[Rfam]
Listeria sRNA rli38: a 150-nucleotide RNA sequence from Virgibacillus pantothenticus.
The source organism's lineage runs through Bacteria, Bacillati, Bacillota, Caryophanales and Virgibacillus.
The family's RNA type in Rfam is small RNA.
Pairs were carried over by alignment from the consensus structure, which was predicted with RNAalifold.

RNA sequence: GUAGAGUGGGAAUAAGAGGCUAACUUGAUUUGAAGAGAGAACGCUGAUUUAACAGCAUUUGUCCUAAGCUAAAACGGAUAAAUUGAUAAAAAAUAAUAUAGUUCCCUGCCAAAAACCCUGCCAAUAAAAAAUUUUGGCAGGGAAUUUUGU
Numbered sequence: 001g002u003a004g005a006g007u008g009g010g011a012a013u014a015a016g017a018g019g020c021u022a023a024c025u026u027g028a029u030u031u032g033a034a035g036a037g038a039g040a041a042c043g044c045u046g047a048u049u050u051a052a053c054a055g056c057a058u059u060u061g062u063c064c065u066a067a068g069c070u071a072a073a074a075c076g077g078a079u080a081a082a083u084u085g086a087u088a089a090a091a092a093a094u095a096a097u098a099u100a101g102u103u104c105c106c107u108g109c110c111a112a113a114a115a116c117c118c119u120g121c122c123a124a125u126a127a128a129a130a131a132u133u134u135u136g137g138c139a140g141g142g143a144a145u146u147u148u149g150u
Base pairs, nucleotide, nucleotide: 008106009105010104011103012102049089050088051087053085054084055083058082059081061079062078063077064076113146114145116142117141118140119139120138121137122136123135124134